[Rfam]
RNA sequence: AGAAUCCACAUUAAUUAUCCCUAGUGUCAUGGGAUAAACACAUACCCUACAAAAUAAAGUUAGCACACCCUAUAAUGGUUCUAGCACGAUUACUAACCUAUGGCUCUAAUACUAGUUGAUGGGAAAAACCU
Numbered sequence: 001a002g003a004a005u006c007c008a009c010a011u012u013a014a015u016u017a018u019c020c021c022u023a024g025u026g027u028c029a030u031g032g033g034a035u036a037a038a039c040a041c042a043u044a045c046c047c048u049a050c051a052a053a054a055u056a057a058a059g060u061u062a063g064c065a066c067a068c069c070c071u072a073u074a075a076u077g078g079u080u081c082u083a084g085c086a087c088g089a090u091u092a093c094u095a096a097c098c099u100a101u102g103g104c105u106c107u108a109a110u111a112c113u114a115g116u117u118g119a120u121g122g123g124a125a126a127a128a129c130c131u
Base pairs, nucleotide, nucleotide: 009121010120011119012118013117014116015115016114022108023107024106026104027103028102029101030100031099032098033097048086053080054079057076061072062071063070
Shown here is a 131-nucleotide sequence from Vitis vinifera, a member of the family "MIR845_2 microRNA precursor family". A search with the family's covariance model found it, with a score of 128 bits. The base pairs follow the family's consensus structure, which was predicted with WAR.